RNA: SL2 RNA
Organism: Caenorhabditis brenneri
RNA sequence: GGUUUUAACCCUUUUACCAAGGUAAUUUGGAGUUCCGACCUUUCGAAAGAAAGUGUUAAACAACUGUAACUUUUGGAACCGCUCUUCCGGGGUAUCCGGUUGGGCAAA
Numbered sequence: 001g002g003u004u005u006u007a008a009c010c011c012u013u014u015u016a017c018c019a020a021g022g023u024a025a026u027u028u029g030g031a032g033u034u035c036c037g038a039c040c041u042u043u044c045g046a047a048a049g050a051a052a053g054u055g056u057u058a059a060a061c062a063a064c065u066g067u068a069a070c071u072u073u074u075g076g077a078a079c080c081g082c083u084c085u086u087c088c089g090g091g092g093u094a095u096c097c098g099g100u101u102g103g104g105c106a107a108a
Base pairs, nucleotide, nucleotide: 007034008033009030010029014025015024016023017022037057038056039055040053041052042051043050044049083106085104086103087102089100091097092096
Dot-bracket structure: ......((((...((((....))))...))..))..((((((((....))))).))).........................(.(((.(.((...))..).))).)..